The record is a 73-nucleotide RNA from Morus notabilis, which matches "Plastid-psbM 3UTR RNA" in Rfam. Rfam describes the family as follows. Plastid psbM is a non-coding RNA (ncRNA) recognised in plastids. Rfam classes the family as a cis-regulatory element.
RNA sequence: UACUAGAUAGUAUGGUAGAAAACGAUUUUUCUACCAUACUAGUAUUAUUAUUGUACUGUAUAAAGUUUGCUGU
Numbered sequence: 001u002a003c004u005a006g007a008u009a010g011u012a013u014g015g016u017a018g019a020a021a022a023c024g025a026u027u028u029u030u031c032u033a034c035c036a037u038a039c040u041a042g043u044a045u046u047a048u049u050a051u052u053g054u055a056c057u058g059u060a061u062a063a064a065g066u067u068u069g070c071u072g073u
Base pairs, nucleotide, nucleotide: 006043008041009040010039011038012037013036014035015034016033017032018031019030020029021028022027
Overview
It scores 55 bits against the family's covariance model.